[Rfam]
Nucleotides: 121
Base pairs, nucleotide, nucleotide: 007026008025009024010023011022012021047075049073055071056070057069
Number, partner (000 for none) and nucleotide at each position: 001000u002000a003000g004000c005000c006000g007026g008025g009024c010023u011022g012021u013000a014000g015000a016000g017000g018000u019000g020000c021012g022011c023010g024009g025008u026007u027000c028000g029000g030000c031000c032000g033000g034000a035000u036000u037000u038000a039000u040000c041000a042000g043000c044000a045000c046000c047075g048000c049073a050000a051000a052000c053000a054000u055071g056070a057069g058000g059000u060000g061000a062000g063000u064000u065000a066000u067000g068000g069057c070056u071055c072000u073049u074000u075047c076000u077000g078000c079000c080000a081000a082000u083000g084000a085000a086000a087000a088000a089000g090000c091000a092000c093000a094000g095000a096000u097000c098000g099000u100000u101000c102000a103000a104000g105000a106000u107000u108000a109000u110000c111000a112000g113000c114000a115000a116000g117000c118000u119000g120000a121000u